Shown here is a 129-nucleotide sequence from Desulfosporosinus orientis, a member of the family "c-di-AMP riboswitch aptamer (ydaO/yuaA leader)". The literature on the family includes a 2004 paper in Proc Natl Acad Sci U S A by Barrick et al., "New RNA motifs suggest an expanded scope for riboswitches in bacterial genetic control". It scores 94 bits against the family's covariance model. The organism belongs to Desulfosporosinus orientis, within Bacteria.

RNA sequence: AUUUAUGCUUUGCUGAAUUUCCAAAAGGAAAACGGGGGAACCAACUUUUGGGGUGAAUCGCCAGACAGCGUAGAGCAGUUUUCAGCUCGAACCCGACAGCUAACCUCGUAAGCGUUGAAACACACGUUG
Numbered sequence: 001a002u003u004u005a006u007g008c009u010u011u012g013c014u015g016a017a018u019u020u021c022c023a024a025a026a027g028g029a030a031a032a033c034g035g036g037g038g039a040a041c042c043a044a045c046u047u048u049u050g051g052g053g054u055g056a057a058u059c060g061c062c063a064g065a066c067a068g069c070g071u072a073g074a075g076c077a078g079u080u081u082u083c084a085g086c087u088c089g090a091a092c093c094c095g096a097c098a099g100c101u102a103a104c105c106u107c108g109u110a111a112g113c114g115u116u117g118a119a120a121c122a123c124a125c126g127u128u129g
Base pairs, nucleotide, nucleotide: 011114012113013112014111018031019030020029032109033108034107035106036105037104042050043049051094052093053092059070060069061068073088074087075086076085